RNA sequence: UCUUUGAAGGCACCCACCAUCACUGACUUCCACAGCCCGGCCGCAAAGCCGGGCUGCU
Numbered sequence: 001u002c003u004u005u006g007a008a009g010g011c012a013c014c015c016a017c018c019a020u021c022a023c024u025g026a027c028u029u030c031c032a033c034a035g036c037c038c039g040g041c042c043g044c045a046a047a048g049c050c051g052g053g054c055u056g057c058u
Stems, first nucleotide, its partner, number of pairs: 033056009
Dot-bracket structure: ................................(((((((((......)))))))))..
RNA: Caulobacter sRNA CC0196